[Rfam]
RNA sequence: UAUGCAGGAAUAUAUUCAACUCAUAUAUACCCAAGAUAAGGUUGGGAGUAUCUACCGAAUACCAAAAAUUAUUCGACUAUGAGUGGGGAUUAAUAUAUC
Numbered sequence: 001u002a003u004g005c006a007g008g009a010a011u012a013u014a015u016u017c018a019a020c021u022c023a024u025a026u027a028u029a030c031c032c033a034a035g036a037u038a039a040g041g042u043u044g045g046g047a048g049u050a051u052c053u054a055c056c057g058a059a060u061a062c063c064a065a066a067a068a069u070u071a072u073u074c075g076a077c078u079a080u081g082a083g084u085g086g087g088g089a090u091u092a093a094u095a096u097a098u099c
Stems, first nucleotide, its partner, number of pairs: 019084007030046005056075006

Overview
Purine riboswitch aptamer: a 99-nucleotide sequence from Clostridium putrefaciens. Its family is annotated with purine nucleobase biosynthetic process in the Gene Ontology.